Shown here is a 118-nucleotide RNA sequence from Callithrix jacchus, a member of the family "Small nucleolar RNA SNORD22". The family's consensus secondary structure was predicted with PFOLD. The family's RNA type in Rfam is C/D-box small nucleolar RNA.
[Rfam]
RNA sequence: UUUCUCCAGUGUUCAGCCUUACCCCCUGUUAAAGCCUGGGAACAAAUCAUUGUGAACCCACCAGUGUUAACUGGAAGAGAGCAUGAAAGCUUAUUCCGUAAGGAACUGUUUGGGAAAU
Numbered sequence: 001u002u003u004c005u006c007c008a009g010u011g012u013u014c015a016g017c018c019u020u021a022c023c024c025c026c027u028g029u030u031a032a033a034g035c036c037u038g039g040g041a042a043c044a045a046a047u048c049a050u051u052g053u054g055a056a057c058c059c060a061c062c063a064g065u066g067u068u069a070a071c072u073g074g075a076a077g078a079g080a081g082c083a084u085g086a087a088a089g090c091u092u093a094u095u096c097c098g099u100a101a102g103g104a105a106c107u108g109u110u111u112g113g114g115a116a117a118u
Stems, first nucleotide, its partner, number of pairs: 001117004